[Rfam]
Nucleotides: 109
Stems, first nucleotide, its partner, number of pairs: 007024001009022003012018001027084006039075003042052003056072006085099006
Number, partner (000 for none) and nucleotide at each position: 001000u002000a003000u004000g005000u006000u007024u008000g009022c010021a011020g012018g013000u014000a015000a016000g017000a018012c019000a020011u021010u022009g023000a024007g025000u026000a027084c028083a029082a030081a031080a032079g033000a034000a035000a036000u037000c038000a039075g040074c041073g042052a043051u044050a045000g046000a047000u048000g049000a050044u051043a052042u053000u054000a055000a056072g057071c058070g059069u060068a061067u062000a063000g064000u065000a066000a067061g068060u069059a070058c071057g072056u073041c074040g075039c076000c077000u078000u079032c080031u081030u082029u083028u084027g085099g086098g087097g088096a089095u090094c091000a092000c093000g094090g095089a096088u097087c098086c099085u100000u101000u102000g103000a104000g105000u106000u107000c108000c109000u

A member of the RNA family "DUF3800-I RNA", 109 nucleotides long. Actinobacteria, Firmicutes, Fusobacteria, Proteobacteria (1 example), Tenericutes (2 examples). Rfam's curators put it in the seed alignment.